[Rfam]
RNA sequence: UAAACAGACUUGAUUUCCUCAGUGAGAUUGUAGUGCUUGCUUAACAAUGGGUUUUGGCUGCAAGUGCAAUAAUUCUUGCUUUGUGUGCCAGUUUUUAUGUGGACAUUUGAUUACCUUUGCACAUGAAUGGUAAUUUUCCUGCGGGGUGUGGAUUGCAUAUGCAUGUAAUGAUUUGCAUGUUUGUUAAAUGUGUCUGGUGUAUUUGUUUGUGUCCUUGUCCUUGAGGUUGCUUUCUCCCUUGGGCUUACAUGCCCUGGCACACACAUUCUGGCAAAAUGCUUCUGCUUGACCCGUCUUGAAACACGG
Numbered sequence: 001u002a003a004a005c006a007g008a009c010u011u012g013a014u015u016u017c018c019u020c021a022g023u024g025a026g027a028u029u030g031u032a033g034u035g036c037u038u039g040c041u042u043a044a045c046a047a048u049g050g051g052u053u054u055u056g057g058c059u060g061c062a063a064g065u066g067c068a069a070u071a072a073u074u075c076u077u078g079c080u081u082u083g084u085g086u087g088c089c090a091g092u093u094u095u096u097a098u099g100u101g102g103a104c105a106u107u108u109g110a111u112u113a114c115c116u117u118u119g120c121a122c123a124u125g126a127a128u129g130g131u132a133a134u135u136u137u138c139c140u141g142c143g144g145g146g147u148g149u150g151g152a153u154u155g156c157a158u159a160u161g162c163a164u165g166u167a168a169u170g171a172u173u174u175g176c177a178u179g180u181u182u183g184u185u186a187a188a189u190g191u192g193u194c195u196g197g198u199g200u201a202u203u204u205g206u207u208u209g210u211g212u213c214c215u216u217g218u219c220c221u222u223g224a225g226g227u228u229g230c231u232u233u234c235u236c237c238c239u240u241g242g243g244c245u246u247a248c249a250u251g252c253c254c255u256g257g258c259a260c261a262c263a264c265a266u267u268c269u270g271g272c273a274a275a276a277u278g279c280u281u282c283u284g285c286u287u288g289a290c291c292c293g294u295c296u297u298g299a300a301a302c303a304c305g306g
Stems, first nucleotide, its partner, number of pairs: 001288003005284004011278002017145001020144001022142003026138001149270004154265002291306004